Description:
The record is a 79-nucleotide RNA sequence from Ancylostoma caninum, which matches "SmY spliceosomal RNA" in Rfam. The base pairs follow the family's consensus structure, which is taken from published work. Rfam 15.1 lists 408 matches to the family in 67 species. Rfam classes the family as a spliceosomal small nuclear RNA.
[Rfam]
RNA sequence: GAAGUUUCUACAGCUCACUUAGGGCCUUUGGCAAGACCCUUCGUAUGAAUUUUUGGAGACCCUUGCUGAGGUAAGGGUU
Numbered sequence: 001g002a003a004g005u006u007u008c009u010a011c012a013g014c015u016c017a018c019u020u021a022g023g024g025c026c027u028u029u030g031g032c033a034a035g036a037c038c039c040u041u042c043g044u045a046u047g048a049a050u051u052u053u054u055g056g057a058g059a060c061c062c063u064u065g066c067u068g069a070g071g072u073a074a075g076g077g078u079u
Stems, first nucleotide, its partner, number of pairs: 022039003026035003059078008